RNA sequence: AGGGGUGUGAGGAGCAAGUUGAAAAUAAAAAACGCCUGGGGUGGAAACACGGCAACACUCCCAGGCGUUUUUUA
Numbered sequence: 001a002g003g004g005g006u007g008u009g010a011g012g013a014g015c016a017a018g019u020u021g022a023a024a025a026u027a028a029a030a031a032a033c034g035c036c037u038g039g040g041g042u043g044g045a046a047a048c049a050c051g052g053c054a055a056c057a058c059u060c061c062c063a064g065g066c067g068u069u070u071u072u073u074a
Stems, first nucleotide, its partner, number of pairs: 029071005036064005041058003
Shown here is a 74-nucleotide sequence from Calothrix sp. PCC 7507, a member of the family "Cyano-1 RNA".
By type it is a small RNA.
The organism belongs to Calothrix, within Bacteria.
It scores 52 bits against the family's covariance model.